RNA sequence: CCGGCACCAUGACAGUCUGUCUAAAAACCAGCCCGCUGGUGGGGCAGACUUGAGAACUCGGUGUG
Numbered sequence: 001c002c003g004g005c006a007c008c009a010u011g012a013c014a015g016u017c018u019g020u021c022u023a024a025a026a027a028c029c030a031g032c033c034c035g036c037u038g039g040u041g042g043g044g045c046a047g048a049c050u051u052g053a054g055a056a057c058u059c060g061g062u063g064u065g
Stems, first nucleotide, its partner, number of pairs: 001065001004062002014050009029038003

Source information
A member of the RNA family "Selenocysteine insertion sequence 1" from Cnephaeus nilssonii, 65 nucleotides long. The match comes from Rfam's covariance-model search (42 bits). By type it is a cis-regulatory element. A reference for the family is Walczak et al. (1996), "A novel RNA structural motif in the selenocysteine insertion element of eukaryotic selenoprotein mRNAs", RNA. Lineage of the source: Eukaryota > Euteleostomi > Boreoeutheria > Chiroptera > Cnephaeus. The base pairs follow the family's consensus structure, which is taken from published work.